[Rfam]
RNA: permuted transfer-messenger RNA
RNA sequence: GGCGAUAAAUGGCCUUCGUAAUAAGCCUAUCGGACCCGGGGGCAGUACCCGGCGCCUCCACCAUAAUUCCAGACCGCGGGUCCCCGCAUCUGGCAUUCUGUGGGGGCGAACUAGGAUCGACGAGGGUGUAAAAGUUGUGCUUUCGCUCGGCAUGGUUCCGCCGUUAUCGGGCCGUUCAAUAGUUGCAAACGACAACUAUGCGGAGGCGGCUCUCGCUGCGUAA
Numbered sequence: 001g002g003c004g005a006u007a008a009a010u011g012g013c014c015u016u017c018g019u020a021a022u023a024a025g026c027c028u029a030u031c032g033g034a035c036c037c038g039g040g041g042g043c044a045g046u047a048c049c050c051g052g053c054g055c056c057u058c059c060a061c062c063a064u065a066a067u068u069c070c071a072g073a074c075c076g077c078g079g080g081u082c083c084c085c086g087c088a089u090c091u092g093g094c095a096u097u098c099u100g101u102g103g104g105g106g107c108g109a110a111c112u113a114g115g116a117u118c119g120a121c122g123a124g125g126g127u128g129u130a131a132a133a134g135u136u137g138u139g140c141u142u143u144c145g146c147u148c149g150g151c152a153u154g155g156u157u158c159c160g161c162c163g164u165u166a167u168c169g170g171g172c173c174g175u176u177c178a179a180u181a182g183u184u185g186c187a188a189a190c191g192a193c194a195a196c197u198a199u200g201c202g203g204a205g206g207c208g209g210c211u212c213u214c215g216c217u218g219c220g221u222a223a
Stems, first nucleotide, its partner, number of pairs: 001147005014137001017134001026126003030123003036052005053108009148163004